[Rfam]
RNA sequence: ACAGUACAAACUGAGCAGGCUGUGUUUUCUGCCGGCGUAUGUAUUUCAAGCCGGAAAGGAUCCAUGGAUAGCCGGGCCGUUUUGACGGCAGCAGAUGGAGCUUACAUCUGUGGGACAGUA
Number, nucleotide and partner (000 for none) at each position: 001a000002c000003a000004g000005u000006a000007c000008a000009a000010a119011c118012u117013g116014a000015g000016c114017a000018g073019g072020c071021u070022g000023u066024g065025u064026u000027u000028u000029c000030u000031g000032c000033c000034g000035g000036c000037g000038u000039a000040u000041g000042u000043a000044u000045u000046u000047c000048a000049a000050g000051c000052c000053g000054g000055a000056a000057a000058g000059g000060a000061u000062c000063c000064a025065u024066g023067g000068a000069u000070a021071g020072c019073c018074g000075g000076g089077c088078c087079g086080u085081u000082u000083u000084g000085a080086c079087g078088g077089c076090a000091g111092c110093a109094g108095a107096u106097g000098g000099a000100g000101c000102u000103u000104a000105c000106a096107u095108c094109u093110g092111u091112g000113g000114g016115a000116c013117a012118g011119u010120a000
The family of this 120-nucleotide RNA sequence from Lachnospiraceae bacterium 3_1_57FAA_CT1 is "NiCo (Nickel/Cobalt) riboswitch aptamer". Its family is annotated with cobalt ion binding and metal ion homeostasis in the Gene Ontology. The sequence is in the family's curated seed alignment. On this family, see Furukawa et al., Mol Cell 2015: "Bacterial riboswitches cooperatively bind Ni(2+) or Co(2+) ions and control expression of heavy metal transporters". Pairs were carried over by alignment from the consensus structure, which is taken from published work.